[Rfam]
RNA sequence: GCACAUCUGAAAAGCGGGCCGCCGACCGGCGGCCCCACCCAAGGUGCAAGUCACGGCCGCCGCCGCGCGGGGCCGUGGUGAACCUCUCAGGUUCGAUGACAGAUGGGGAGGA
Numbered sequence: 001g002c003a004c005a006u007c008u009g010a011a012a013a014g015c016g017g018g019c020c021g022c023c024g025a026c027c028g029g030c031g032g033c034c035c036c037a038c039c040c041a042a043g044g045u046g047c048a049a050g051u052c053a054c055g056g057c058c059g060c061c062g063c064c065g066c067g068c069g070g071g072g073c074c075g076u077g078g079u080g081a082a083c084c085u086c087u088c089a090g091g092u093u094c095g096a097u098g099a100c101a102g103a104u105g106g107g108g109a110g111g112a
Stems, first nucleotide, its partner, number of pairs: 002107001004105006016035007037092003041087001044086001046084001050079009
A member of the RNA family "Glycine riboswitch aptamer" from Streptomyces minutiscleroticus, 112 nucleotides long. Its family is annotated with glycine biosynthetic process in the Gene Ontology.